[Rfam]
RNA sequence: UUGUUGACUCAAGGUGGCCUAGCAGCGUGUUUUCAUGUAAGACUUGCACCCUGUCAGACCAUACUUGUUUCAAUU
Numbered sequence: 001u002u003g004u005u006g007a008c009u010c011a012a013g014g015u016g017g018c019c020u021a022g023c024a025g026c027g028u029g030u031u032u033u034c035a036u037g038u039a040a041g042a043c044u045u046g047c048a049c050c051c052u053g054u055c056a057g058a059c060c061a062u063a064c065u066u067g068u069u070u071c072a073a074u075u
Stems, first nucleotide, its partner, number of pairs: 005072003010067004014062004019057002022054004027049004
A member of the RNA family "mir-2755 microRNA precursor family" from Arctia plantaginis, 75 nucleotides long. The match comes from Rfam's covariance-model search (81 bits). NCBI's taxonomy places the organism under Eukaryota, Altocrustacea, Dicondylia, Neoptera, Arctia.